[Rfam]
RNA sequence: GAGUUAGUAUAGCUCUAUUAGAAUUUCUUCUAGCAGGUAUUCUGACUUUGAUCAGAAAACCCAA
Numbered sequence: 001g002a003g004u005u006a007g008u009a010u011a012g013c014u015c016u017a018u019u020a021g022a023a024u025u026u027c028u029u030c031u032a033g034c035a036g037g038u039a040u041u042c043u044g045a046c047u048u049u050g051a052u053c054a055g056a057a058a059a060c061c062c063a064a
Base pairs, nucleotide, nucleotide: 036061037060038059040057041056042055043054044053045052
This 64-nucleotide RNA from Rattus norvegicus belongs to the Rfam family "U7 small nuclear RNA". Rfam's curators write: Animal histone pre-mRNAs are spliced by a different mechanism than nuclear pre-mRNAs and self-splicing introns. This processing involves the U7 snRNP, which contains only one RNA species: U7. The 5' end of U7 RNA is thought to base-pair to a conserved spacer element downstream of the cleavage site in histone pre-mRNA. This family contains a number of annotated U7 pseudogenes. The match comes from Rfam's covariance-model search (43 bits). A reference for the family is Spycher et al. (1994), "3' end processing of mouse histone pre-mRNA: evidence for additional base-pairing between U7 snRNA and pre-mRNA", Nucleic Acids Res.